This 319-nucleotide RNA sequence from Magnetospirillum gryphiswaldense belongs to the Rfam family "Alphaproteobacteria transfer-messenger RNA". The base pairs follow the family's consensus structure, which is taken from published work. NCBI's taxonomy places the organism under Bacteria, Pseudomonadati, Pseudomonadota, Alphaproteobacteria, Magnetospirillum gryphiswaldense MSR-1. The match comes from Rfam's covariance-model search (256 bits).

[Rfam]
RNA sequence: GGGGUGGCGCUUGUCGCCGCGCUGCACUAUAUUGGUUUUGCCGGGUUCGCCCGGCUAUGGCGCUAAACGUCUUGUGGAAUAGGCCUUGCGGACCCGGGGGCGGUACCCGGCGCCUCCACCAAACCAUCCGAGGUUACGAUCGGACGAUUGGGGGCGAAAUAGGAUCGACGCGGGUAGUAAAGACUUGGCUUGUGCUCGGCAUGGUACCACCGUUAUCGGGCUAAAUCUCACAAGUGCCAACGACAACGUUGAACUUGCCGCUGCGGCGUAAUCCGUAAGCGCGGUCCGGGGGGAACCGGGCAACAGAACUCCCCCCACU
Numbered sequence: 001g002g003g004g005u006g007g008c009g010c011u012u013g014u015c016g017c018c019g020c021g022c023u024g025c026a027c028u029a030u031a032u033u034g035g036u037u038u039u040g041c042c043g044g045g046u047u048c049g050c051c052c053g054g055c056u057a058u059g060g061c062g063c064u065a066a067a068c069g070u071c072u073u074g075u076g077g078a079a080u081a082g083g084c085c086u087u088g089c090g091g092a093c094c095c096g097g098g099g100g101c102g103g104u105a106c107c108c109g110g111c112g113c114c115u116c117c118a119c120c121a122a123a124c125c126a127u128c129c130g131a132g133g134u135u136a137c138g139a140u141c142g143g144a145c146g147a148u149u150g151g152g153g154g155c156g157a158a159a160u161a162g163g164a165u166c167g168a169c170g171c172g173g174g175u176a177g178u179a180a181a182g183a184c185u186u187g188g189c190u191u192g193u194g195c196u197c198g199g200c201a202u203g204g205u206a207c208c209a210c211c212g213u214u215a216u217c218g219g220g221c222u223a224a225a226u227c228u229c230a231c232a233a234g235u236g237c238c239a240a241c242g243a244c245a246a247c248g249u250u251g252a253a254c255u256u257g258c259c260g261c262u263g264c265g266g267c268g269u270a271a272u273c274c275g276u277a278a279g280c281g282c283g284g285u286c287c288g289g290g291g292g293g294a295a296c297c298g299g300g301c302a303a304c305a306g307a308a309c310u311c312c313c314c315c316c317a318c319u
Stems, first nucleotide, its partner, number of pairs: 040055005059196005069189003074184002084174003088171003094110005111156007197212003202223003207219002282298004288315006